[Rfam]
RNA sequence: AGAGAGGGUAACCUGGCUGUGAGAUCUGGUAUGCCACUGAUUGCAUGGGUUGAUCUGACUGAUCUGGCUAGCUUAGGCAGGUGUUCCCUUUCUUCCUCAACAUUCUCUGUGUGGUCCUCUUAAUGAUGUGUGCUUGGUUAAUGAGUAGAGCCUCCCCAACAGACAUGGUAUUGUUAAUUGGUCAAAGGGGUCUGGUAGUUGUGCUCCCCUGCUGGAAGCUCUAAGUAAGCUCAAGGUCCAUUUGUAGGCAAAUGUAGGGUAAUCAAGCAUCCAAUACCGAAGACACAUCCAAAUGAGAAGCUGCAUGCACCACUCUGCCAGU
Numbered sequence: 001a002g003a004g005a006g007g008g009u010a011a012c013c014u015g016g017c018u019g020u021g022a023g024a025u026c027u028g029g030u031a032u033g034c035c036a037c038u039g040a041u042u043g044c045a046u047g048g049g050u051u052g053a054u055c056u057g058a059c060u061g062a063u064c065u066g067g068c069u070a071g072c073u074u075a076g077g078c079a080g081g082u083g084u085u086c087c088c089u090u091u092c093u094u095c096c097u098c099a100a101c102a103u104u105c106u107c108u109g110u111g112u113g114g115u116c117c118u119c120u121u122a123a124u125g126a127u128g129u130g131u132g133c134u135u136g137g138u139u140a141a142u143g144a145g146u147a148g149a150g151c152c153u154c155c156c157c158a159a160c161a162g163a164c165a166u167g168g169u170a171u172u173g174u175u176a177a178u179u180g181g182u183c184a185a186a187g188g189g190g191u192c193u194g195g196u197a198g199u200u201g202u203g204c205u206c207c208c209c210u211g212c213u214g215g216a217a218g219c220u221c222u223a224a225g226u227a228a229g230c231u232c233a234a235g236g237u238c239c240a241u242u243u244g245u246a247g248g249c250a251a252a253u254g255u256a257g258g259g260u261a262a263u264c265a266a267g268c269a270u271c272c273a274a275u276a277c278c279g280a281a282g283a284c285a286c287a288u289c290c291a292a293a294u295g296a297g298a299a300g301c302u303g304c305a306u307g308c309a310c311c312a313c314u315c316u317g318c319c320a321g322u
Stems, first nucleotide, its partner, number of pairs: 001106003005097004010091002015088002021085002024082005030076001032071001034067003039064004043059001114169002118163002120137004125133001138159002145155001147153001198268003205261001207259006221248002225245005297319001300314001302312002